[Rfam]
RNA sequence: CUUGUGAGGACAUGCUUCCUUAUAUGCCCAUAUGAAUACGCCAGUUAUGGAAUGUAAGGAAGUGUGUGGUCUCAAG
Numbered sequence: 001c002u003u004g005u006g007a008g009g010a011c012a013u014g015c016u017u018c019c020u021u022a023u024a025u026g027c028c029c030a031u032a033u034g035a036a037u038a039c040g041c042c043a044g045u046u047a048u049g050g051a052a053u054g055u056a057a058g059g060a061a062g063u064g065u066g067u068g069g070u071c072u073c074a075a076g
Stems, first nucleotide, its partner, number of pairs: 007070001010067016028050005
The record is a 76-nucleotide RNA sequence from Gadus morhua, which matches "mir-1 microRNA precursor family" in Rfam. It scores 64 bits against the family's covariance model. On this family, see Lee and Ambros, Science 2001: "An extensive class of small RNAs in Caenorhabditis elegans". This family represents the microRNA (miRNA) mir-1 family. miRNAs are transcribed as ~70nt precursors (modelled here) and subsequently processed by the Dicer enzyme to give a ~22nt product. Rfam 15.1 lists 4,474 matches to the family in 965 species. Rfam links the family to the GO terms RISC complex and miRNA-mediated post-transcriptional gene silencing.